[Rfam]
RNA sequence: AAGCUCAAGGGCGUACAAAUCUUGCCAAUGGCAUUUCCCUGGACGUUAGCGAUGAUCCGCGAGGUAGCAACCUGGAGUUUGCUUCACCGUUAGUACGUGCACGGAACGCGGUGGGGU
Numbered sequence: 001a002a003g004c005u006c007a008a009g010g011g012c013g014u015a016c017a018a019a020u021c022u023u024g025c026c027a028a029u030g031g032c033a034u035u036u037c038c039c040u041g042g043a044c045g046u047u048a049g050c051g052a053u054g055a056u057c058c059g060c061g062a063g064g065u066a067g068c069a070a071c072c073u074g075g076a077g078u079u080u081g082c083u084u085c086a087c088c089g090u091u092a093g094u095a096c097g098u099g100c101a102c103g104g105a106a107c108g109c110g111g112u113g114g115g116g117u
Stems, first nucleotide, its partner, number of pairs: 001080006008073003011046004016041002023033004049068002057064002082116009096103002
RNA: Flavobacterium-1 RNA